Bacillus-plasmid RNA: a 50-nucleotide RNA from Senna tora. It scores 33 bits against the family's covariance model. Lineage of the source: Eukaryota > Streptophyta > Embryophyta > Fabales > Senna. It is annotated as a small RNA.

RNA sequence: UCUGUCAACGGUAACAGUCAGGAGACUAAAUAGUUGACAGAGUUGCAAAU
Numbered sequence: 001u002c003u004g005u006c007a008a009c010g011g012u013a014a015c016a017g018u019c020a021g022g023a024g025a026c027u028a029a030a031u032a033g034u035u036g037a038c039a040g041a042g043u044u045g046c047a048a049a050u
Stems, first nucleotide, its partner, number of pairs: 001041009